Rfam assigns this 73-nucleotide RNA sequence from Pseudomonas savastanoi to the family "Pseudomonas sRNA P9". This small RNA (sRNA) was computationally identified in the genome of the opportunistic pathogen Pseudomonas aeruginosa and its expression verified by northern blot analysis. P9 appears to be conserved in several Pseudomonas species in addition to Bordetella spp. In both Pseudomonas and Bordetella spp P9 appears to be located upstream of a predicted threonine dehydratase gene. It is annotated as a non-coding RNA gene. NCBI's taxonomy places the organism under Bacteria, Gammaproteobacteria, Pseudomonas, Pseudomonas savastanoi, Pseudomonas savastanoi pv. phaseolicola. For this family Rfam cites "Identification of 17 Pseudomonas aeruginosa sRNAs and prediction of sRNA-encoding genes in 10 diverse pathogens using the bioinformatic tool sRNAPredict2" (Livny et al., Nucleic Acids Res, 2006).
[Rfam]
RNA sequence: AUUAUUAUUACCGUCAUUCCAGUCAUGGCGGGUUAGCAGACGUUUGCAAAAACCCGCCCUGGAGGCGGGUUUC
Number, nucleotide and partner (000 for none) at each position: 001a000002u000003u000004a000005u000006u000007a000008u000009u000010a000011c031012c030013g029014u028015c027016a026017u025018u000019c000020c000021a000022g000023u000024c000025a017026u016027g015028g014029c013030g012031g011032g000033u000034u000035a000036g000037c000038a000039g000040a000041c000042g000043u000044u000045u000046g000047c000048a000049a000050a072051a071052a070053c069054c068055c067056g066057c065058c064059c000060u000061g000062g000063a000064g058065g057066c056067g055068g054069g053070u052071u051072u050073c000